This 134-nucleotide RNA sequence from Ameiurus melas belongs to the Rfam family "Small nucleolar RNA SNORA68". Taxonomically the source falls in Ameiurus (Eukaryota, Opisthokonta, Clupeocephala, Siluroidei). A reference for the family is Ganot et al. (1997), "The family of box ACA small nucleolar RNAs is defined by an evolutionarily conserved secondary structure and ubiquitous sequence elements essential for RNA accumulation", Genes Dev. By type it is an H/ACA-box small nucleolar RNA. U68 is a member of the H/ACA class of small nucleolar RNAs (snoRNAs) which act as guides in the the modification of uridines to pseudouridines.

[Rfam]
Nucleotides: 134
Base pairs, nucleotide, nucleotide: 003061004060005059006058007057008056019046020045021044022043023042024041025040026039073127075125076124077123078122079121085113086112087111088110089109090108091107093105094104095103
Number, partner (000 for none) and nucleotide at each position: 001000g002000c003061c004060g005059c006058a007057c008056g009000c010000a011000a012000a013000c014000c015000c016000a017000a018000a019046g020045g021044u022043c023042a024041u025040u026039a027000a028000c029000u030000c031000a032000a033000c034000a035000c036000g037000u038000g039026u040025g041024a042023u043022g044021a045020c046019c047000u048000a049000c050000g051000c052000u053000a054000c055000a056008c057007g058006u059005g060004c061003g062000c063000a064000a065000a066000g067000a068000a069000a070000c071000c072000a073127g074000a075125a076124c077123c078122u079121c080000g081000u082000c083000g084000c085113c086112u087111u088110c089109u090108a091107u092000c093105g094104g095103c096000u097000c098000c099000u100000c101000g102000u103095g104094c105093c106000a107091g108090u109089a110088g111087a112086a113085g114000u115000g116000a117000a118000a119000g120000u121079g122078a123077g124076g125075u126000c127073c128000g129000a130000c131000a132000u133000u134000c